[Rfam]
A member of the RNA family "mraW RNA" from Paramicrobacterium humi, 101 nucleotides long. It is annotated as a cis-regulatory element. The source organism's lineage runs through Bacteria, Bacillati, Actinomycetes, Micrococcales and Paramicrobacterium.
RNA sequence: UCUGAUCCCUCCACGCCGACUCCCAGCCGUUGGCCGCCCUGGCGCACUUCCCCGGUGCCAGGUCGGUACGGAUGGGGAUCAGUGUGGAGGGCCAGCCCGAA
Numbered sequence: 001u002c003u004g005a006u007c008c009c010u011c012c013a014c015g016c017c018g019a020c021u022c023c024c025a026g027c028c029g030u031u032g033g034c035c036g037c038c039c040u041g042g043c044g045c046a047c048u049u050c051c052c053c054g055g056u057g058c059c060a061g062g063u064c065g066g067u068a069c070g071g072a073u074g075g076g077g078a079u080c081a082g083u084g085u086g087g088a089g090g091g092c093c094a095g096c097c098c099g100a101a
Stems, first nucleotide, its partner, number of pairs: 010088007018080002021077005027071004033067004038062008